[Rfam]
RNA sequence: UCCAUCGCGAGGUGGGAUCUGAAGGAAGGCGAAGGCAAAACGCUGGCCUGACGGACAGGAACCGUAUGAGGCAUGGAGAGAGGAUGAGAAGGCAAUUAUCUUUAAAGUCCAGUACUUACCCGGAGUCUUUCCAUGUAUAUACGGCAGGCAUAAGCGGGAAGGUGGGUGCG
Numbered sequence: 001u002c003c004a005u006c007g008c009g010a011g012g013u014g015g016g017a018u019c020u021g022a023a024g025g026a027a028g029g030c031g032a033a034g035g036c037a038a039a040a041c042g043c044u045g046g047c048c049u050g051a052c053g054g055a056c057a058g059g060a061a062c063c064g065u066a067u068g069a070g071g072c073a074u075g076g077a078g079a080g081a082g083g084a085u086g087a088g089a090a091g092g093c094a095a096u097u098a099u100c101u102u103u104a105a106a107g108u109c110c111a112g113u114a115c116u117u118a119c120c121c122g123g124a125g126u127c128u129u130u131c132c133a134u135g136u137a138u139a140u141a142c143g144g145c146a147g148g149c150a151u152a153a154g155c156g157g158g159a160a161g162g163u164g165g166g167u168g169c170g
Stems, first nucleotide, its partner, number of pairs: 001016006029169003035163002041156004046149005062144005071136003075132007082110004088103004
This 170-nucleotide sequence from Smithella sp. SCADC belongs to the Rfam family "Group II catalytic intron D1-D4-3". Taxonomically the source falls in Smithella (Bacteria, Thermodesulfobacteriota, Syntrophales, Smithellaceae). The literature on the family includes a 2001 paper in Trends Genet by Bonen and Vogel, "The ins and outs of group II introns". The pairing is the family consensus, mapped onto this sequence.